[Rfam]
RNA sequence: ACACGAGAAAGGAGGUGGUCCGAAGUUGAUUAACUACAGGACUCGUGAGGUGGCUGUCCGCUAGCGGACCGAAGCUGCGAAAAGCUCGUGACGGCGGUGGCCGUCGCGUAGUGCCGCCCUCCGUGGACCGCCGCCCGGCGUCCGGAGGAGCGACAGGACAGUGAAGGCCUGCGAGCGAAUACCAGGCAGUCACCGGACCCCCGGCGUCCCGAGCAAGUCCGGCUCGGGCCGGCAGCGGCUGACGACGCUGCCGGAAGCACGCCGGGGGUUUCCUGU
Numbered sequence: 001a002c003a004c005g006a007g008a009a010a011g012g013a014g015g016u017g018g019u020c021c022g023a024a025g026u027u028g029a030u031u032a033a034c035u036a037c038a039g040g041a042c043u044c045g046u047g048a049g050g051u052g053g054c055u056g057u058c059c060g061c062u063a064g065c066g067g068a069c070c071g072a073a074g075c076u077g078c079g080a081a082a083a084g085c086u087c088g089u090g091a092c093g094g095c096g097g098u099g100g101c102c103g104u105c106g107c108g109u110a111g112u113g114c115c116g117c118c119c120u121c122c123g124u125g126g127a128c129c130g131c132c133g134c135c136c137g138g139c140g141u142c143c144g145g146a147g148g149a150g151c152g153a154c155a156g157g158a159c160a161g162u163g164a165a166g167g168c169c170u171g172c173g174a175g176c177g178a179a180u181a182c183c184a185g186g187c188a189g190u191c192a193c194c195g196g197a198c199c200c201c202c203g204g205c206g207u208c209c210c211g212a213g214c215a216a217g218u219c220c221g222g223c224u225c226g227g228g229c230c231g232g233c234a235g236c237g238g239c240u241g242a243c244g245a246c247g248c249u250g251c252c253g254g255a256a257g258c259a260c261g262c263c264g265g266g267g268g269u270u271u272c273c274u275g276u
Base pairs, nucleotide, nucleotide: 014058015057016056017055018054019053059177060176061175062174064172065171067169069167070166195271196270197269198268199267200266201265202264203263204262205261206260207259209227210226211225212224213223214222
A member of the RNA family "Actinobacteria sRNA Ms_IGR-5" from Amycolatopsis sacchari, 276 nucleotides long. The literature on the family includes a 2013 paper in RNA by Li et al., "Identification of small RNAs in Mycobacterium smegmatis using heterologous Hfq". The family's RNA type in Rfam is small RNA. NCBI's taxonomy places the organism under Bacteria, Actinomycetes, Pseudonocardiales, Pseudonocardiaceae, Amycolatopsis. The pairing is the family consensus, mapped onto this sequence.